[Rfam]
RNA: Plastid-rps12 3UTR RNA
RNA sequence: GGUUUCCAUUGGUGCAAAUCCAAUCACCUCAAUUUGAGAUGAAAAGCAAUUCCCCAUUGGUAGUAAAUGGUUAUCCAUUAAGCGGGGAAAUAAUUUU
Dot-bracket structure: ........((((.......))))............................((((((.((((((.....)))))).)).....))))..........